[Rfam]
Shown here is a 109-nucleotide RNA sequence from Pantherophis guttatus, a member of the family "Small nucleolar RNA SNORD89". Lineage of the source: Eukaryota > Metazoa > Episquamata > Toxicofera > Pantherophis. Gene Ontology terms of the family: nucleolus and RNA processing.
RNA sequence: GCUUAGGAGUGAUGACAAUGAAAGGCCGAAUUGCAGUGCCUCUUAACAGUUUACUCUCUUGAGGCAUGAUGACAAAGUUCCCGAAGCGACCUUUUUAUCUGACCUUGGC
Numbered sequence: 001g002c003u004u005a006g007g008a009g010u011g012a013u014g015a016c017a018a019u020g021a022a023a024g025g026c027c028g029a030a031u032u033g034c035a036g037u038g039c040c041u042c043u044u045a046a047c048a049g050u051u052u053a054c055u056c057u058c059u060u061g062a063g064g065c066a067u068g069a070u071g072a073c074a075a076a077g078u079u080c081c082c083g084a085a086g087c088g089a090c091c092u093u094u095u096u097a098u099c100u101g102a103c104c105u106u107g108g109c
Stems, first nucleotide, its partner, number of pairs: 001109003005105003014099002025034002035095002038092001041089002043084002049067002052064001054063003068080002071078001
Overview
Rfam 15.1 lists 642 matches to the family in 573 species. The base pairs follow the family's consensus structure, which was predicted with RNAalifold.